RNA sequence: GGUUUCCAUUGAUGCAAAUCCAAUCAUUUCAAUUUGAAAUUUUCAAUGAGAAAGAAUUCCCCAUUGGUAGCAAAUAGUAUCCAUUAAGCAGGGAA
Numbered sequence: 001g002g003u004u005u006c007c008a009u010u011g012a013u014g015c016a017a018a019u020c021c022a023a024u025c026a027u028u029u030c031a032a033u034u035u036g037a038a039a040u041u042u043u044c045a046a047u048g049a050g051a052a053a054g055a056a057u058u059c060c061c062c063a064u065u066g067g068u069a070g071c072a073a074a075u076a077g078u079a080u081c082c083a084u085u086a087a088g089c090a091g092g093g094a095a
Stems, first nucleotide, its partner, number of pairs: 009023003059093003063084002066081004071077001